Small nucleolar RNA SNORD60: an 88-nucleotide RNA from Synaphobranchus kaupii. A search with the family's covariance model found it, with a score of 60 bits. The organism belongs to Synaphobranchus, within Eukaryota. Pairs were carried over by alignment from the consensus structure, which was predicted with PFOLD. Its family is annotated with nucleolus and RNA processing in the Gene Ontology.
[Rfam]
RNA sequence: AGCCAGUGAUGACAUUUUCAAAACUUUUCUGACACCUCGUAUGAACUGCUGCUUCGCAGCAUUUGAUUAUGCGUUCUGUCUGAGGCUC
Numbered sequence: 001a002g003c004c005a006g007u008g009a010u011g012a013c014a015u016u017u018u019c020a021a022a023a024c025u026u027u028u029c030u031g032a033c034a035c036c037u038c039g040u041a042u043g044a045a046c047u048g049c050u051g052c053u054u055c056g057c058a059g060c061a062u063u064u065g066a067u068u069a070u071g072c073g074u075u076c077u078g079u080c081u082g083a084g085g086c087u088c
Base pairs, nucleotide, nucleotide: 001087002086003085004084049059050058051057052056